[Rfam]
This 31-nucleotide RNA from Pteropus alecto belongs to the Rfam family "Iron response element II".
On this family, see Koeller et al., Proc Natl Acad Sci U S A 1989: "A cytosolic protein binds to structural elements within the iron regulatory region of the transferrin receptor mRNA".
Rfam 15.1 lists 5,197 matches to the family in 722 species.
Rfam describes the family as follows. IRE, TFRC, SLC40A1, SDHB, SLC11A2, CDC42BPA, ACO2, ALAS2_H.SAPIENS, CDC14A, EPAS1, ALAS2, qoxD, Hao1, NDUFS1, transferrin, Aconitate.
Pairs were carried over by alignment from the consensus structure, which is taken from published work.
RNA sequence: ACAUUAUCAAUAACAGUGUUUAAUAUAAUUC
Numbered sequence: 001a002c003a004u005u006a007u008c009a010a011u012a013a014c015a016g017u018g019u020u021u022a023a024u025a026u027a028a029u030u031c
Stems, first nucleotide, its partner, number of pairs: 003029005009024001011022003014018001
Rfam classes the family as a cis-regulatory element.